[Rfam]
RNA sequence: GACCUUCUGAUGCUUACCACAGGGUGUGUUCUUACACUGUCUGUAUAGAAAGAGGAGGCAAAGUAAAACUAUUCCAUACACACCUCAGCCCAGGCCCUGUGCCUCAUCUGUAUUGUGAAUGGGGAGACACAG
Numbered sequence: 001g002a003c004c005u006u007c008u009g010a011u012g013c014u015u016a017c018c019a020c021a022g023g024g025u026g027u028g029u030u031c032u033u034a035c036a037c038u039g040u041c042u043g044u045a046u047a048g049a050a051a052g053a054g055g056a057g058g059c060a061a062a063g064u065a066a067a068a069c070u071a072u073u074c075c076a077u078a079c080a081c082a083c084c085u086c087a088g089c090c091c092a093g094g095c096c097c098u099g100u101g102c103c104u105c106a107u108c109u110g111u112a113u114u115g116u117g118a119a120u121g122g123g124g125a126g127a128c129a130c131a132g
Base pairs, nucleotide, nucleotide: 003058004057005056006055007054008053020043021042022041026037027036028035029034072124073123074122075121076120077119086110087109088108092104093103094102095101
The record is a 132-nucleotide RNA from Castor canadensis, which matches "Small nucleolar RNA SNORA51" in Rfam. The match comes from Rfam's covariance-model search (131 bits). Pairs were carried over by alignment from the consensus structure, which was predicted with PFOLD. ACA51 is a member of the H/ACA class of snoRNA that guide the sites of modification of uridines to pseudouridines. The source organism's lineage runs through Eukaryota, Chordata, Dipnotetrapodomorpha, Theria and Castor. Rfam links the family to the GO terms RNA processing and nucleolus.